[Rfam]
RNA sequence: AUACAUACCUGGCAGGGGAGAUAGCAUGAUCAGGCAGGUGCUUUUCCAAGGACGAGACUCAUCCCCUACACUCCAGUUGUACAGACCCCUCUGAUUUCCCCACAUGUGAGAAAGUCUUCUGCAUAAUUAGUGGUAGUAGGGGUCUGCGUUUGCACUCUCACCUG
Numbered sequence: 001a002u003a004c005a006u007a008c009c010u011g012g013c014a015g016g017g018g019a020g021a022u023a024g025c026a027u028g029a030u031c032a033g034g035c036a037g038g039u040g041c042u043u044u045u046c047c048a049a050g051g052a053c054g055a056g057a058c059u060c061a062u063c064c065c066c067u068a069c070a071c072u073c074c075a076g077u078u079g080u081a082c083a084g085a086c087c088c089c090u091c092u093g094a095u096u097u098c099c100c101c102a103c104a105u106g107u108g109a110g111a112a113a114g115u116c117u118u119c120u121g122c123a124u125a126a127u128u129a130g131u132g133g134u135a136g137u138a139g140g141g142g143u144c145u146g147c148g149u150u151u152g153c154a155c156u157c158u159c160a161c162c163u164g
Stems, first nucleotide, its partner, number of pairs: 012122004017047005023042005049090003054086001060079002063076001093116002095113003100108001138163003142159001146155001148153001
About this RNA: A member of the RNA family "U1 spliceosomal RNA" from Alectura lathami, 164 nucleotides long. Pairs were carried over by alignment from the consensus structure, which is taken from published work. It is annotated as a spliceosomal small nuclear RNA.